Rfam assigns this 86-nucleotide RNA from Branchiostoma floridae to the family "mir-2060 microRNA precursor family".

[Rfam]
RNA sequence: GUGUGUGGAUGGUGUUUAGCACCAGGGACAGAUGUGUUGGCCUUUGUAUGGAUGGUGUUCAGCACCAGGGACAGGUGUGUUUACCU
Numbered sequence: 001g002u003g004u005g006u007g008g009a010u011g012g013u014g015u016u017u018a019g020c021a022c023c024a025g026g027g028a029c030a031g032a033u034g035u036g037u038u039g040g041c042c043u044u045u046g047u048a049u050g051g052a053u054g055g056u057g058u059u060c061a062g063c064a065c066c067a068g069g070g071a072c073a074g075g076u077g078u079g080u081u082u083a084c085c086u
Base pairs, nucleotide, nucleotide: 001072002071010067011066012065013064014063015062016061018059019058020057021056022055023054024053026047028045030043031042033040